This 87-nucleotide sequence from Rhamnella rubrinervis belongs to the Rfam family "Small nucleolar RNA R44/J54/Z268 family". Taxonomically the source falls in Rhamnella (Eukaryota, Euphyllophyta, Pentapetalae, rosids). By type it is a C/D-box small nucleolar RNA.
RNA sequence: UGUGCAAAUGACGAUAAAAUAGACAGGGACAUCAGCACUCUUUUGGAGAAUGAUUGAUUUGUCACUUGGGAAUCUCUCUGAUGCGCU
Numbered sequence: 001u002g003u004g005c006a007a008a009u010g011a012c013g014a015u016a017a018a019a020u021a022g023a024c025a026g027g028g029a030c031a032u033c034a035g036c037a038c039u040c041u042u043u044u045g046g047a048g049a050a051u052g053a054u055u056g057a058u059u060u061g062u063c064a065c066u067u068g069g070g071a072a073u074c075u076c077u078c079u080g081a082u083g084c085g086c087u
Stems, first nucleotide, its partner, number of pairs: 002086005